[Rfam]
RNA: mir-87 microRNA precursor family
RNA sequence: CACGCAUCGCCUGAUCCUUGCUGCAACCUUUGUAAUUUUCAAACUAGGUGAGCAAAGUUUCAGGUGUGUGUGUGA
Numbered sequence: 001c002a003c004g005c006a007u008c009g010c011c012u013g014a015u016c017c018u019u020g021c022u023g024c025a026a027c028c029u030u031u032g033u034a035a036u037u038u039u040c041a042a043a044c045u046a047g048g049u050g051a052g053c054a055a056a057g058u059u060u061c062a063g064g065u066g067u068g069u070g071u072g073u074g075a
Stems, first nucleotide, its partner, number of pairs: 002073006008066007016057001018055002021052002024050002027048003